[Rfam]
RNA: Plant signal recognition particle RNA
Organism: Zingiber officinale
RNA sequence: GCUGAGCAGGGUUGCGCCAGCUUAUAACCCAAGCGGGGGCUAUGAGUGAUUGGAAUGAAUUGGUUGGAUUUAAAGGCGUGGAUCAUCUUUGCGAUUGCCGAUCUGCCCGUUCCAAGUUUGAAGGUGGGCCGGAAGAAUUGUGCGAAGGCUCGAUUUGACCGGUUCUUAAAGAGGAGGGUACUGGGCCAGGCUGGUUUCACAGAGCAGUCAUUUCCCAUCCUCCUUCAACAGUGGAAGGACAACAGAUCGGUUUGCAAUUUGCCCACAAGUUUCCUCUAGAUCCGAUCCAAUUCUAACUAAUCAUUUU
Numbered sequence: 001g002c003u004g005a006g007c008a009g010g011g012u013u014g015c016g017c018c019a020g021c022u023u024a025u026a027a028c029c030c031a032a033g034c035g036g037g038g039g040c041u042a043u044g045a046g047u048g049a050u051u052g053g054a055a056u057g058a059a060u061u062g063g064u065u066g067g068a069u070u071u072a073a074a075g076g077c078g079u080g081g082a083u084c085a086u087c088u089u090u091g092c093g094a095u096u097g098c099c100g101a102u103c104u105g106c107c108c109g110u111u112c113c114a115a116g117u118u119u120g121a122a123g124g125u126g127g128g129c130c131g132g133a134a135g136a137a138u139u140g141u142g143c144g145a146a147g148g149c150u151c152g153a154u155u156u157g158a159c160c161g162g163u164u165c166u167u168a169a170a171g172a173g174g175a176g177g178g179u180a181c182u183g184g185g186c187c188a189g190g191c192u193g194g195u196u197u198c199a200c201a202g203a204g205c206a207g208u209c210a211u212u213u214c215c216c217a218u219c220c221u222c223c224u225u226c227a228a229c230a231g232u233g234g235a236a237g238g239a240c241a242a243c244a245g246a247u248c249g250g251u252u253u254g255c256a257a258u259u260u261g262c263c264c265a266c267a268a269g270u271u272u273c274c275u276c277u278a279g280a281u282c283c284g285a286u287c288c289a290a291u292u293c294u295a296a297c298u299a300a301u302c303a304u305u306u307u
Base pairs, nucleotide, nucleotide: 001040002039003038004023005022006021007020009018010017028037029036030035044306045305046304047303048302049301050300051299052298053297057293059291060290061289062287063286064285065284066283067282068281069280070279071278072277074275075274076273078266079265080264081263083261085259089257090256091255093252094251098250099249100248101247102246103245104244105243107238108237110236111235112234113233114232116229117228119227120226121225122224123223124222126165127164128163129162130161131160132159135156136155137154138153139152140151142149143148166171172221173220174219175218176215177214178213184209185208186207191202192201193200